[Rfam]
RNA sequence: CAUUAAUACACGGGGUGCUCUGAGAGGUCAGGGCUGAGAAUAUACCCGAAACCUGAUUUGGAUAAUGCCAACGUAGGGAUGUAGACUUAGAAUACU
Numbered sequence: 001c002a003u004u005a006a007u008a009c010a011c012g013g014g015g016u017g018c019u020c021u022g023a024g025a026g027g028u029c030a031g032g033g034c035u036g037a038g039a040a041u042a043u044a045c046c047c048g049a050a051a052c053c054u055g056a057u058u059u060g061g062a063u064a065a066u067g068c069c070a071a072c073g074u075a076g077g078g079a080u081g082u083a084g085a086c087u088u089a090g091a092a093u094a095c096u
Base pairs, nucleotide, nucleotide: 007083008082009081010080011048012047013046014045016042017034018033019032020031021030052077053076054075055074058071059070060069061068
Rfam assigns this 96-nucleotide RNA from Psychroflexus sediminis to the family "TPP riboswitch aptamer (THI element)".
Taxonomically the source falls in Psychroflexus (Bacteria, Pseudomonadati, Bacteroidota, Flavobacteriaceae).
The family's consensus secondary structure is taken from published work.
A search with the family's covariance model found it, with a score of 69 bits.